[Rfam]
RNA: 7SK RNA
Organism: Atractosteus spatula
RNA sequence: GGAUGUGAGGGCGAUCUGGCUGCGACAUCUGUCACCCCAUUGAUCGCUAGGGUCGAUUCGGCUGAUCUGGCUGGCUAGGCGGGUGUCCCCUCCCUCCCUCACGGCUCCAUGUGCGUCCCUCCCGAAGCCCUGCGCUCGGUGGAAGAGGACCGGCGUCCCGGUGGAAGAGAAUCGUUCCGCGGUUCAAGGGUUUACGAGUAGCUGCGCUCCCCUGCUAGCACCUCCAAACAAGCUCAAGGCCCAUUUGUAGGAGAGACGUAGGGAAGUCGAGCUGCGAGACUUCACGACACAUCCAAGUGAGGCACUGCACGUGGCAGCCUGCCUUCGUUU
Numbered sequence: 001g002g003a004u005g006u007g008a009g010g011g012c013g014a015u016c017u018g019g020c021u022g023c024g025a026c027a028u029c030u031g032u033c034a035c036c037c038c039a040u041u042g043a044u045c046g047c048u049a050g051g052g053u054c055g056a057u058u059c060g061g062c063u064g065a066u067c068u069g070g071c072u073g074g075c076u077a078g079g080c081g082g083g084u085g086u087c088c089c090c091u092c093c094c095u096c097c098c099u100c101a102c103g104g105c106u107c108c109a110u111g112u113g114c115g116u117c118c119c120u121c122c123c124g125a126a127g128c129c130c131u132g133c134g135c136u137c138g139g140u141g142g143a144a145g146a147g148g149a150c151c152g153g154c155g156u157c158c159c160g161g162u163g164g165a166a167g168a169g170a171a172u173c174g175u176u177c178c179g180c181g182g183u184u185c186a187a188g189g190g191u192u193u194a195c196g197a198g199u200a201g202c203u204g205c206g207c208u209c210c211c212c213u214g215c216u217a218g219c220a221c222c223u224c225c226a227a228a229c230a231a232g233c234u235c236a237a238g239g240c241c242c243a244u245u246u247g248u249a250g251g252a253g254a255g256a257c258g259u260a261g262g263g264a265a266g267u268c269g270a271g272c273u274g275c276g277a278g279a280c281u282u283c284a285c286g287a288c289a290c291a292u293c294c295a296a297g298u299g300a301g302g303c304a305c306u307g308c309a310c311g312u313g314g315c316a317g318c319c320u321g322c323c324u325u326c327g328u329u330u
Stems, first nucleotide, its partner, number of pairs: 001108003005102007013093001018090002024087010035074002037070003042067004046062003116170002118167001120165002122139004127135002140161001142159001147158003201272003207266002210263006222253004228248005295330003299325005305317004